Pseudomonas sRNA P6: a 510-nucleotide RNA from Pseudomonas paraeruginosa. The base pairs follow the family's consensus structure, which was predicted with RNAalifold. The family's RNA type in Rfam is small RNA. Taxonomically the source falls in Pseudomonas paraeruginosa (Bacteria, Pseudomonadota, Pseudomonadales, Pseudomonadaceae).
[Rfam]
RNA sequence: UCGAAGGGGAUAGCAUCGAUUGGCAGGAGAAAUAGAACCUUGCCCAGGCCGCCGACGGAUAUGCGUGUUCACCGGCUCUUGCGCAGGGACGCCUUCUCGUGGAAAGGGCGCCAGCUGGGGUGAGCGGCAUUCUAGCGACAGGCCGGAAGUGGUUAUUUCUUCAAUGCGACAACUAAUUAUAAAAGCACCGAAGAGGGCUUUCGGCGAUAUUGACAGGCAGCUGCAUUUGUGCCCGGAAAGCGCGAAGUGUAAUCAAUGAGUAAAGCAAAUCUCAAGCCAUAAAUUGGUAAUUCCUUCUUCUUCAACGGUUUGGACGAGCCGACUCGCUUCGCCUGCUACCCCGUGUCGCACCCUCACGGUGCGUGGCGUUUCCUCUCGCCCCAAUUAUGCGCAGGCGCGCAUCACCGAAGUGUUACCGCCCACGCAUUCCCGCGCGCGCCCAUUCGGCACGCCCUCCUCCUCGACCCGCGCCAAAUGAAAGACCCCGCGCAGCUCGCACCGCGCGGGGUC
Numbered sequence: 001u002c003g004a005a006g007g008g009g010a011u012a013g014c015a016u017c018g019a020u021u022g023g024c025a026g027g028a029g030a031a032a033u034a035g036a037a038c039c040u041u042g043c044c045c046a047g048g049c050c051g052c053c054g055a056c057g058g059a060u061a062u063g064c065g066u067g068u069u070c071a072c073c074g075g076c077u078c079u080u081g082c083g084c085a086g087g088g089a090c091g092c093c094u095u096c097u098c099g100u101g102g103a104a105a106g107g108g109c110g111c112c113a114g115c116u117g118g119g120g121u122g123a124g125c126g127g128c129a130u131u132c133u134a135g136c137g138a139c140a141g142g143c144c145g146g147a148a149g150u151g152g153u154u155a156u157u158u159c160u161u162c163a164a165u166g167c168g169a170c171a172a173c174u175a176a177u178u179a180u181a182a183a184a185g186c187a188c189c190g191a192a193g194a195g196g197g198c199u200u201u202c203g204g205c206g207a208u209a210u211u212g213a214c215a216g217g218c219a220g221c222u223g224c225a226u227u228u229g230u231g232c233c234c235g236g237a238a239a240g241c242g243c244g245a246a247g248u249g250u251a252a253u254c255a256a257u258g259a260g261u262a263a264a265g266c267a268a269a270u271c272u273c274a275a276g277c278c279a280u281a282a283a284u285u286g287g288u289a290a291u292u293c294c295u296u297c298u299u300c301u302u303c304a305a306c307g308g309u310u311u312g313g314a315c316g317a318g319c320c321g322a323c324u325c326g327c328u329u330c331g332c333c334u335g336c337u338a339c340c341c342c343g344u345g346u347c348g349c350a351c352c353c354u355c356a357c358g359g360u361g362c363g364u365g366g367c368g369u370u371u372c373c374u375c376u377c378g379c380c381c382c383a384a385u386u387a388u389g390c391g392c393a394g395g396c397g398c399g400c401a402u403c404a405c406c407g408a409a410g411u412g413u414u415a416c417c418g419c420c421c422a423c424g425c426a427u428u429c430c431c432g433c434g435c436g437c438g439c440c441c442a443u444u445c446g447g448c449a450c451g452c453c454c455u456c457c458u459c460c461u462c463g464a465c466c467c468g469c470g471c472c473a474a475a476u477g478a479a480a481g482a483c484c485c486c487g488c489g490c491a492g493c494u495c496g497c498a499c500c501g502c503g504c505g506g507g508g509u510c
Base pairs, nucleotide, nucleotide: 001464002463003462004461006459007458008457009456010455013452014451016447017446018445019444022044023043024042025041026040027039029038047440048439049438050436051435052434056407057406058405061402062401063400064399065072066071075398076397078395079394080393081392082391083390084389085388087112088111090110091109092108093107094106095105097103098102116383117382118381119380120379121378122377123376124375126373127372135367136366138364139363142205143204144203145202146201147200149198150197156196157195158194159193160192161191162190165187166186167185206347207346208345209344210343212341216337217336218335219334220333221331223250224249225248226247227246228245229243230242231241232240258325259324260323261322266316273312274311275310276309277308278307280305348362349361350360351359418433419432481510482509483508484507485506486505487504488503489502490501492499